[Rfam]
Rfam assigns this 135-nucleotide RNA sequence from Serilophus lunatus to the family "Small nucleolar RNA SNORA33". Rfam links the family to the GO terms RNA processing and nucleolus. About the family: ACA33 is a member of the H/ACA class of snoRNA that guide the sites of modification of uridines to pseudouridines. The family's consensus secondary structure was predicted with PFOLD. A search with the family's covariance model found it, with a score of 90 bits. The family's RNA type in Rfam is H/ACA-box small nucleolar RNA.
RNA sequence: AUGCCAGUUCAAUGUGCCCGCUCAACUUUAAAAUGUUUUGCGGAGCACAUUUUGCAAUGACACUGGUAAAGCAAAGCCACAGUACGAGCCUUAAAGACUUUGUUGUCUCUGAGGUCCCAAAAAGUGGCUACAUCU
Numbered sequence: 001a002u003g004c005c006a007g008u009u010c011a012a013u014g015u016g017c018c019c020g021c022u023c024a025a026c027u028u029u030a031a032a033a034u035g036u037u038u039u040g041c042g043g044a045g046c047a048c049a050u051u052u053u054g055c056a057a058u059g060a061c062a063c064u065g066g067u068a069a070a071g072c073a074a075a076g077c078c079a080c081a082g083u084a085c086g087a088g089c090c091u092u093a094a095a096g097a098c099u100u101u102g103u104u105g106u107c108u109c110u111g112a113g114g115u116c117c118c119a120a121a122a123a124g125u126g127g128c129u130a131c132a133u134c135u
Base pairs, nucleotide, nucleotide: 003067004066005065006064007063018043019042020041021040076128077127078126079125088115089114090113091112092111093110096107097106098105